[Rfam]
RNA: ASpks TB sRNA
Organism: Thermocatellispora tengchongensis
RNA sequence: CUUCACCGAUCCCAGCCACAGCGGCCGGUCUUCGGGCCGGCCCUGACCAUAAGUGGCCAGCAGCGCCUGCGCCUC
Dot-bracket structure: ..............(((.....))).....(.(....((...(((.(((....))).)))...))...).)....
Numbered sequence: 001c002u003u004c005a006c007c008g009a010u011c012c013c014a015g016c017c018a019c020a021g022c023g024g025c026c027g028g029u030c031u032u033c034g035g036g037c038c039g040g041c042c043c044u045g046a047c048c049a050u051a052a053g054u055g056g057c058c059a060g061c062a063g064c065g066c067c068u069g070c071g072c073c074u075c
Stems, first nucleotide, its partner, number of pairs: 015025003031071001033069001038065002043060003047056003